[Rfam]
Record summary:
Rfam assigns this 82-nucleotide sequence from Paenalicyclobacillus mengziensis to the family "ZMP/ZTP riboswitch aptamer (pfl RNA motif)". A search with the family's covariance model found it, with a score of 65 bits. Pairs were carried over by alignment from the consensus structure, which is taken from published work.

RNA sequence: GACCGAUUGUAUGACUGGCGGAAACGUGGAUGACCACGAGGGAGUACAAUCGUUGACAAUGCCGACCGCCUGGGCGCCAAAC
Numbered sequence: 001g002a003c004c005g006a007u008u009g010u011a012u013g014a015c016u017g018g019c020g021g022a023a024a025c026g027u028g029g030a031u032g033a034c035c036a037c038g039a040g041g042g043a044g045u046a047c048a049a050u051c052g053u054u055g056a057c058a059a060u061g062c063c064g065a066c067c068g069c070c071u072g073g074g075c076g077c078c079a080a081a082c
Stems, first nucleotide, its partner, number of pairs: 004052009015041002017070005026037004060076004